[Rfam]
RNA sequence: UGCCUAUGAUGAAUAAAAAUGUAUAAGAGUAGUGGACAGGAGUGAUUUCUGAUAAUUUUUACUCUGAGGCA
Numbered sequence: 001u002g003c004c005u006a007u008g009a010u011g012a013a014u015a016a017a018a019a020u021g022u023a024u025a026a027g028a029g030u031a032g033u034g035g036a037c038a039g040g041a042g043u044g045a046u047u048u049c050u051g052a053u054a055a056u057u058u059u060u061a062c063u064c065u066g067a068g069g070c071a
Stems, first nucleotide, its partner, number of pairs: 001071004
The family of this 71-nucleotide RNA sequence is "Small nucleolar RNA SNORD75". The family has 5 seed sequences and 767 matches in Rfam 15.1. A reference for the family is Smith and Steitz (1998), "Classification of gas5 as a multi-small-nucleolar-RNA (snoRNA) host gene and a member of the 5'-terminal oligopyrimidine gene family reveals common features of snoRNA host genes", Mol Cell Biol. It is annotated as a C/D-box small nucleolar RNA. Its family is annotated with RNA processing and nucleolus in the Gene Ontology. It is one of the family's seed sequences.